[Rfam]
RNA sequence: AUUAGCCCUGCGGCGGGACAGGGUGAACUCCCCCAGGCCCGAAAGGGAGCAAGGGUAAGCCCGCCGUCCCGUGCGCAGGGUCCUAAAACAA
Numbered sequence: 001a002u003u004a005g006c007c008c009u010g011c012g013g014c015g016g017g018a019c020a021g022g023g024u025g026a027a028c029u030c031c032c033c034c035a036g037g038c039c040c041g042a043a044a045g046g047g048a049g050c051a052a053g054g055g056u057a058a059g060c061c062c063g064c065c066g067u068c069c070c071g072u073g074c075g076c077a078g079g080g081u082c083c084u085a086a087a088a089c090a091a
Stems, first nucleotide, its partner, number of pairs: 003085002005081006011073001013072006021062004030055003038047003
The family of this 91-nucleotide RNA sequence from Aquifex aeolicus is "Bacterial small signal recognition particle RNA". By type it is a non-coding RNA gene.